[Rfam]
A member of the RNA family "U5 spliceosomal RNA" from Ascosphaera apis, 112 nucleotides long. The source organism's lineage runs through Eukaryota, Dikarya, leotiomyceta, Eurotiomycetidae and Ascosphaera apis. The sequence is in the family's curated seed alignment. It is annotated as a spliceosomal small nuclear RNA. The literature on the family includes a 1996 paper in J Biol Chem by Hinz et al., "Domain analysis of human U5 RNA. Cap trimethylation, protein binding, and spliceosome assembly".
RNA sequence: AUGGAGUGGGACGAGCUAGCUCAGAAUCCAUUUCUUGCCUUUUACCAGAGAUGGCCGUGGCUUCGCCCAUUAAACUCCACUUAACAAUCUUUGGAAUGUCUAACAAGACACA
Numbered sequence: 001a002u003g004g005a006g007u008g009g010g011a012c013g014a015g016c017u018a019g020c021u022c023a024g025a026a027u028c029c030a031u032u033u034c035u036u037g038c039c040u041u042u043u044a045c046c047a048g049a050g051a052u053g054g055c056c057g058u059g060g061c062u063u064c065g066c067c068c069a070u071u072a073a074a075c076u077c078c079a080c081u082u083a084a085c086a087a088u089c090u091u092u093g094g095a096a097u098g099u100c101u102a103a104c105a106a107g108a109c110a111c112a
Base pairs, nucleotide, nucleotide: 003078004077005076006075009068010067012065013064014063015062017060019058028054029053030052031051032050033049034048035047097110098109099108100107101106